[Rfam]
Background: A member of the RNA family "Bacterial large subunit ribosomal RNA" from Cryptosporangium arvum, 363 nucleotides of a longer RNA. Taxonomically the source falls in Cryptosporangium arvum (Bacteria, Bacillati, Cryptosporangiales, Cryptosporangium). A reference for the family is Cannone et al. (2002), "The comparative RNA web (CRW) site: an online database of comparative sequence and structure information for ribosomal, intron, and other RNAs", BMC Bioinformatics.

RNA sequence: CGAGCGAACUGUGGUUAAGGAACUCGGCAAAAUACCCCCGUAACUUCGGGAGAAGGGGGGCCGGAGACGUGAUCCCACUUGCUGGGGGAGCGUUGUAUGGCCGCAGAGACCAGGGGAAAGCGACUGUUUACUAAAAACACAGGUCCGUGCGAAGUCGUAAGACGAUGUAUACGGACUGACGCCUGCCCGGUGCUGGAACGUUAAGGGGACCGGUUAGUCCGUAAGGGCGAAGCUGAGAACUUAAGCGCCAGUAAACGGCGGUGGUAACUAUAACCAUCCUAAGGUAGCGAAAUUCCUUGUCGGGUAAGUUCCGACCUGCACGAAUGGCGUAACGACUUUCCUACUGUCUCAACCACAGGCUCG
Numbered sequence: 001c002g003a004g005c006g007a008a009c010u011g012u013g014g015u016u017a018a019g020g021a022a023c024u025c026g027g028c029a030a031a032a033u034a035c036c037c038c039c040g041u042a043a044c045u046u047c048g049g050g051a052g053a054a055g056g057g058g059g060g061c062c063g064g065a066g067a068c069g070u071g072a073u074c075c076c077a078c079u080u081g082c083u084g085g086g087g088g089a090g091c092g093u094u095g096u097a098u099g100g101c102c103g104c105a106g107a108g109a110c111c112a113g114g115g116g117a118a119a120g121c122g123a124c125u126g127u128u129u130a131c132u133a134a135a136a137a138c139a140c141a142g143g144u145c146c147g148u149g150c151g152a153a154g155u156c157g158u159a160a161g162a163c164g165a166u167g168u169a170u171a172c173g174g175a176c177u178g179a180c181g182c183c184u185g186c187c188c189g190g191u192g193c194u195g196g197a198a199c200g201u202u203a204a205g206g207g208g209a210c211c212g213g214u215u216a217g218u219c220c221g222u223a224a225g226g227g228c229g230a231a232g233c234u235g236a237g238a239a240c241u242u243a244a245g246c247g248c249c250a251g252u253a254a255a256c257g258g259c260g261g262u263g264g265u266a267a268c269u270a271u272a273a274c275c276a277u278c279c280u281a282a283g284g285u286a287g288c289g290a291a292a293u294u295c296c297u298u299g300u301c302g303g304g305u306a307a308g309u310u311c312c313g314a315c316c317u318g319c320a321c322g323a324a325u326g327g328c329g330u331a332a333c334g335a336c337u338u339u340c341c342u343a344c345u346g347u348c349u350c351a352a353c354c355a356c357a358g359g360c361u362c363g
Stems, first nucleotide, its partner, number of pairs: 001363004009358008018349003035059005044049001060101004065096001073089004078084001102106001114342007121334002125139003142177008150167001154163003180329004185259003190256002192252005199247003205241002211235004217228004260278006279283001289316001299315006